[Rfam]
RNA sequence: AGAGUUUGCAAUGAGGAUGGCAAAAGCUCCCUCUUCUGAGGUUUUAAGGUGAGGAAUUCUGCUGGCAGAAUCGAACCUACAACUUUAAACGCCACAACCGAGUAA
Numbered sequence: 001a002g003a004g005u006u007u008g009c010a011a012u013g014a015g016g017a018u019g020g021c022a023a024a025a026g027c028u029c030c031c032u033c034u035u036c037u038g039a040g041g042u043u044u045u046a047a048g049g050u051g052a053g054g055a056a057u058u059c060u061g062c063u064g065g066c067a068g069a070a071u072c073g074a075a076c077c078u079a080c081a082a083c084u085u086u087a088a089a090c091g092c093c094a095c096a097a098c099c100g101a102g103u104a105a
Stems, first nucleotide, its partner, number of pairs: 006105004
A member of the RNA family "Small nucleolar RNA R30/Z108" from Carya illinoinensis, 105 nucleotides long. Gene Ontology terms of the family: RNA processing and nucleolus. Rfam classes the family as a C/D-box small nucleolar RNA. NCBI's taxonomy places the organism under Eukaryota, Viridiplantae, Streptophytina, Magnoliopsida, Carya.